Shown here is a 174-nucleotide RNA sequence from Pseudoalteromonas denitrificans, a member of the family "Lysine riboswitch aptamer".

RNA sequence: AGGGCUGGAAGAGGUGCGUUAUUCAGGUAGCAAGUUUUAGGAGAGCAAACUCCAAUGAGAACUUGUAAGGGGAAUUAACGCCGAGAAAUCUUUAUUAUUUUGCUUAAAUAAAGUUUCGGGCGAAUGGGUUGAAUCCCAUCGACUGUCACCUAAUGGUGGAGAGCUUCUGGUCUU
Number, nucleotide and partner (000 for none) at each position: 001a000002g000003g000004g000005c000006u169007g168008g167009a166010a165011g164012a000013g000014g000015u000016g081017c080018g079019u078020u077021a076022u000023u074024c000025a000026g000027g000028u000029a000030g066031c065032a064033a063034g062035u061036u060037u059038u000039a000040g000041g000042a000043g000044a000045g000046c000047a000048a000049a000050c000051u000052c000053c000054a000055a000056u000057g000058a000059g037060a036061a035062c034063u033064u032065g031066u030067a000068a000069g000070g000071g000072g000073a000074a023075u000076u021077a020078a019079c018080g017081c016082c000083g000084a000085g117086a116087a115088a114089u113090c000091u112092u111093u110094a109095u108096u107097a000098u000099u000100u000101u000102g000103c000104u000105u000106a000107a096108a095109u094110a093111a092112a091113g089114u088115u087116u086117c085118g144119g143120g000121c141122g000123a000124a139125u138126g137127g136128g135129u000130u000131g000132a000133a000134u000135c128136c127137c126138a125139u124140c000141g121142a000143c119144u118145g000146u159147c158148a157149c156150c155151u000152a000153a000154u000155g150156g149157u148158g147159g146160a000161g000162a000163g000164c011165u010166u009167c008168u007169g006170g000171u000172c000173u000174u000

The organism belongs to Pseudoalteromonas denitrificans, within Bacteria. From the family's description: Riboswitches are metabolite binding domains within certain messenger RNAs that serve as precision sensors for their corresponding targets.